RNA: DUF805b RNA
RNA sequence: AAGGUGAAACCCGAAAAACCUUUAAAGAGUAGGGA
Numbered sequence: 001a002a003g004g005u006g007a008a009a010c011c012c013g014a015a016a017a018a019c020c021u022u023u024a025a026a027g028a029g030u031a032g033g034g035a
Stems, first nucleotide, its partner, number of pairs: 002021004010034003